[Rfam]
RNA sequence: CCGUGCUAGGUGGGAAGGUAGCGGUGUCCUGUAACUCGCAAUCCGCUUUAGCGAGACUGAAUUCCCUUAGGAGGCUGUUCGCAUGUUUGGUCUGCCUCUUGCACGUAGCGUUGACGAUUGGGUCCUGCGCAAUGAGUUCCCAUGAACCAUGUCAGGUCCGAGAGGAAGCAGCAUUAAGUGGAUCAACUUAUGUGCCGCGGGGUAGCCUAAUCUGAGCUGGCGACAAGAGUAACGCUUAUGUGUGACUGUCGAUUAAGGGUGCAUGG
Numbered sequence: 001c002c003g004u005g006c007u008a009g010g011u012g013g014g015a016a017g018g019u020a021g022c023g024g025u026g027u028c029c030u031g032u033a034a035c036u037c038g039c040a041a042u043c044c045g046c047u048u049u050a051g052c053g054a055g056a057c058u059g060a061a062u063u064c065c066c067u068u069a070g071g072a073g074g075c076u077g078u079u080c081g082c083a084u085g086u087u088u089g090g091u092c093u094g095c096c097u098c099u100u101g102c103a104c105g106u107a108g109c110g111u112u113g114a115c116g117a118u119u120g121g122g123u124c125c126u127g128c129g130c131a132a133u134g135a136g137u138u139c140c141c142a143u144g145a146a147c148c149a150u151g152u153c154a155g156g157u158c159c160g161a162g163a164g165g166a167a168g169c170a171g172c173a174u175u176a177a178g179u180g181g182a183u184c185a186a187c188u189u190a191u192g193u194g195c196c197g198c199g200g201g202g203u204a205g206c207c208u209a210a211u212c213u214g215a216g217c218u219g220g221c222g223a224c225a226a227g228a229g230u231a232a233c234g235c236u237u238a239u240g241u242g243u244g245a246c247u248g249u250c251g252a253u254u255a256a257g258g259g260u261g262c263a264u265g266g
Base pairs, nucleotide, nucleotide: 001266002265003264004263005262006261009058010057011056012030013029014028015027017025019023035055036054037053038052039051064259065258066257067256068255069254070253073250074249075248077246080244081243082242083241084240085239086238089235093231094230097228098227099226100225101224105221106220107218108217109216116212117211118210119209120208121207122206123205124201125200126199127198128197129196130192131191133190134189135188136187137186140181141180142179143178149174150173151172152171157166158165159164
Bacterial large signal recognition particle RNA: a 266-nucleotide RNA sequence from Kurthia sp. 11kri321. The family's RNA type in Rfam is non-coding RNA gene.